[Rfam]
RNA: t44 RNA
Organism: Bowmanella pacifica
RNA sequence: GGGUGUAAAACUAAAUAACACACAUGCAUCGACACGGUUUUCGGGGUGUCUGGCGGGGUUUACCCUUAAGGAUCGAAGACUGGGAUGCAUGGAGGCCUAAC
Numbered sequence: 001g002g003g004u005g006u007a008a009a010a011c012u013a014a015a016u017a018a019c020a021c022a023c024a025u026g027c028a029u030c031g032a033c034a035c036g037g038u039u040u041u042c043g044g045g046g047u048g049u050c051u052g053g054c055g056g057g058g059u060u061u062a063c064c065c066u067u068a069a070g071g072a073u074c075g076a077a078g079a080c081u082g083g084g085a086u087g088c089a090u091g092g093a094g095g096c097c098u099a100a101c
Stems, first nucleotide, its partner, number of pairs: 023091008035082009048073004